[Rfam]
RNA: Small nucleolar RNA SNORA38
Organism: Myotis myotis
RNA sequence: CCCUCCAACAAAAGUGUGUUUGUGGUUCCCUGUCUUUGGACACAUAAGAAUUGGAGGCAAAGAAAUGUGGACUUGGAGAAGUCUGGAGCCAGCUUGCUCCCUGCAGGCUCAAGAGCCACCAUCCCACGUAG
Number, nucleotide and partner (000 for none) at each position: 001c000002c057003c056004u055005c054006c053007a000008a000009c000010a000011a000012a000013a000014g000015u044016g043017u042018g041019u040020u039021u038022g000023u000024g030025g029026u000027u000028c000029c025030c024031u000032g000033u000034c000035u000036u000037u000038g021039g020040a019041c018042a017043c016044a015045u000046a000047a000048g000049a000050a000051u000052u000053g006054g005055a004056g003057g002058c000059a000060a000061a000062g000063a000064a000065a000066u000067g000068u000069g124070g123071a122072c000073u121074u000075g000076g000077a000078g000079a000080a000081g000082u000083c000084u000085g000086g000087a000088g000089c000090c000091a109092g108093c107094u106095u105096g104097c103098u000099c000100c000101c000102u000103g097104c096105a095106g094107g093108c092109u091110c000111a000112a000113g000114a000115g000116c000117c000118a000119c000120c000121a073122u071123c070124c069125c000126a000127c000128g000129u000130a000131g000